[Rfam]
RNA sequence: GGAGCGGGCCUUUCAGGCAUCCUCUCCUAAAACUUUACAAGCCGUCCUCCGGGGCGGCUUUUUUUUGUGCUGU
Numbered sequence: 001g002g003a004g005c006g007g008g009c010c011u012u013u014c015a016g017g018c019a020u021c022c023u024c025u026c027c028u029a030a031a032a033c034u035u036u037a038c039a040a041g042c043c044g045u046c047c048u049c050c051g052g053g054g055c056g057g058c059u060u061u062u063u064u065u066u067g068u069g070c071u072g073u
Stems, first nucleotide, its partner, number of pairs: 008018004039060009
RNA: Makes More Granules Regulator RNA (mmgR)